[Rfam]
RNA: Small nucleolar RNA SNORA74
Organism: Tricholaema leucomelas
Nucleotides: 204
Stems, first nucleotide, its partner, number of pairs: 001060009011051002015046005021039002025036002069138009085126009095114001099111004140199005147192001156185003160181007
Number, partner (000 for none) and nucleotide at each position: 001060c002059c003058c004057a005056g006055c007054a008053g009052u010000a011051g012050u013000c014000a015046g016045c017044u018043a019042c020000a021039c022038a023000u024000u025036g026035c027000u028000g029000c030000u031000c032000a033000g034000u035026g036025c037000c038022u039021g040000u041000g042019g043018u044017a045016g046015u047000g048000u049000u050012a051011u052009g053008c054007u055006g056005c057004u058003g059002g060001g061000a062000g063000a064000g065000a066000a067000a068000u069138g070137u071136g072135c073134u074133g075132c076131c077130a078000a079000g080000c081000u082000g083000c084000u085126c086125c087124u088123g089122g090121c091120a092119c093118c094000a095114c096000c097000a098000g099111u100110g101109c102108u103000g104000u105000c106000u107000u108102a109101g110100u111099g112000c113000u114095g115000g116000a117000u118093g119092g120091u121090g122089c123088c124087a125086g126085g127000u128000u129000u130077u131076g132075g133074c134073a135072g136071c137070a138069c139000u140199c141198u142197g143196c144195a145000c146000g147192c148000c149000u150000g151000a152000g153000a154000g155000u156185g157184g158183a159000a160181u161180a162179a163178c164177u165176c166175c167000g168000g169000c170000a171000u172000g173000g174000u175166g176165g177164a178163g179162u180161u181160a182000c183158u184157c185156u186000u187000a188000g189000a190000c191000u192147g193000g194000a195144u196143g197142c198141a199140g200000a201000c202000a203000g204000u